[Rfam]
RNA sequence: GUGCCAUCCCGAGCGGCCGAGAGACCUGGCUCUUUGACGCCGCAGCAACCACCCGCUGGACGCGGGCAGGUGCUUCCGCCAGGCUCGAUGGAGG
Numbered sequence: 001g002u003g004c005c006a007u008c009c010c011g012a013g014c015g016g017c018c019g020a021g022a023g024a025c026c027u028g029g030c031u032c033u034u035u036g037a038c039g040c041c042g043c044a045g046c047a048a049c050c051a052c053c054c055g056c057u058g059g060a061c062g063c064g065g066g067c068a069g070g071u072g073c074u075u076c077c078g079c080c081a082g083g084c085u086c087g088a089u090g091g092a093g094g
Base pairs, nucleotide, nucleotide: 002093004091005090006089007088008087013043014042015041016040017039021032022031023030026082027081028080029079044074045073046072047071049070050069052066053065054064055063078086